[Rfam]
RNA: Lysine riboswitch aptamer
RNA sequence: AACUGCGAUAGAGGUGCAGAAAUCAUCAGUAGCAUUUUGACAGACGCCGGACGUUGAUAACCGAUAUGUGAAAGGGAUUUUUGCCGAAAAAAGCAAUUGCUCCGGGCAAUGCUUUUUGGGCACAUUGUUAACAGCAAUGCGACUGUCAUCAUUUUGUUGUGAUGGAGAGCUAUCGACAUU
Numbered sequence: 001a002a003c004u005g006c007g008a009u010a011g012a013g014g015u016g017c018a019g020a021a022a023u024c025a026u027c028a029g030u031a032g033c034a035u036u037u038u039g040a041c042a043g044a045c046g047c048c049g050g051a052c053g054u055u056g057a058u059a060a061c062c063g064a065u066a067u068g069u070g071a072a073a074g075g076g077a078u079u080u081u082u083g084c085c086g087a088a089a090a091a092a093g094c095a096a097u098u099g100c101u102c103c104g105g106g107c108a109a110u111g112c113u114u115u116u117u118g119g120g121c122a123c124a125u126u127g128u129u130a131a132c133a134g135c136a137a138u139g140c141g142a143c144u145g146u147c148a149u150c151a152u153u154u155u156g157u158u159g160u161g162a163u164g165g166a167g168a169g170c171u172a173u174c175g176a177c178a179u180u
Stems, first nucleotide, its partner, number of pairs: 006175006016084009032069004037064003088117008097108001118144002121141001123139006146165007